RNA sequence: GGCUUUUUUCGCGGCGGAGCUCGACCGCCCACACAUCAGAUAGUCGCGUUCAUCGACAUCCACCAGCAGGAGUUCGGGGUCGAGCCGAUCUGCCGCGUCUUGCAGGUCGCCCCG
Numbered sequence: 001g002g003c004u005u006u007u008u009u010c011g012c013g014g015c016g017g018a019g020c021u022c023g024a025c026c027g028c029c030c031a032c033a034c035a036u037c038a039g040a041u042a043g044u045c046g047c048g049u050u051c052a053u054c055g056a057c058a059u060c061c062a063c064c065a066g067c068a069g070g071a072g073u074u075c076g077g078g079g080u081c082g083a084g085c086c087g088a089u090c091u092g093c094c095g096c097g098u099c100u101u102g103c104a105g106g107u108c109g110c111c112c113c114g
Base pairs, nucleotide, nucleotide: 013029014028015027016026017025075114076113077112078111079110086109087108089106090105091104092103093102095100
A member of the RNA family "ALIL pseudoknot" from Nocardiopsis metallicus, 114 nucleotides long. Pairs were carried over by alignment from the consensus structure, which is taken from published work. Its family is annotated with positive regulation of translational frameshifting in the Gene Ontology. The source organism's lineage runs through Bacteria, Bacillati, Actinomycetota, Actinomycetes and Nocardiopsis. Rfam classes the family as a cis-regulatory element.